[Rfam]
Shown here is an 81-nucleotide RNA sequence from Chrysemys picta, a member of the family "mir-26 microRNA precursor family". Rfam 15.1 lists 2,251 matches to the family in 645 species.
RNA sequence: UUGUGACCUGGUUCAAGUAAUCCAGGAUAGGCUGUGUGCAAUCUAAUUGGCCUAUUCUUGAUUACUUGCACUGGGAGGCAA
Numbered sequence: 001u002u003g004u005g006a007c008c009u010g011g012u013u014c015a016a017g018u019a020a021u022c023c024a025g026g027a028u029a030g031g032c033u034g035u036g037u038g039c040a041a042u043c044u045a046a047u048u049g050g051c052c053u054a055u056u057c058u059u060g061a062u063u064a065c066u067u068g069c070a071c072u073g074g075g076a077g078g079c080a081a
Stems, first nucleotide, its partner, number of pairs: 002080003007075006014068009024058010
Notes:
A search with the family's covariance model found it, with a score of 87 bits. The source organism's lineage runs through Eukaryota, Sauropsida, Testudinoidea, Emydidae and Chrysemys picta. The base pairs follow the family's consensus structure, which was predicted with RNAalifold.